[Rfam]
RNA sequence: UGAUGGCAGUGAUGAUUGUUGCUUUCCUGAUGUUGUGACAUGAGGGUGCUCAGUCACUGCCUCAUCUGAGCCAUCU
Number, nucleotide and partner (000 for none) at each position: 001u000002g075003a074004u073005g072006g071007c070008a000009g000010u000011g000012a000013u000014g000015a000016u000017u000018g000019u000020u000021g000022c000023u000024u000025u000026c000027c000028u000029g000030a000031u000032g000033u000034u000035g000036u000037g000038a000039c000040a000041u000042g000043a000044g000045g000046g000047u000048g000049c000050u000051c000052a000053g000054u000055c000056a000057c000058u000059g000060c000061c000062u000063c000064a000065u000066c000067u000068g000069a000070g007071c006072c005073a004074u003075c002076u000
The family of this 76-nucleotide sequence from Rhipidura dahli is "Small nucleolar RNA SNORD11B". A reference for the family is Yang et al. (2006), "snoSeeker: an advanced computational package for screening of guide and orphan snoRNA genes in the human genome", Nucleic Acids Res. Rfam links the family to the GO terms RNA processing and nucleolus. Taxonomically the source falls in Rhipidura (Eukaryota, Chordata, Sauropsida, Passeriformes). The family's consensus secondary structure was predicted with WAR. Clan: SNORD11 clan.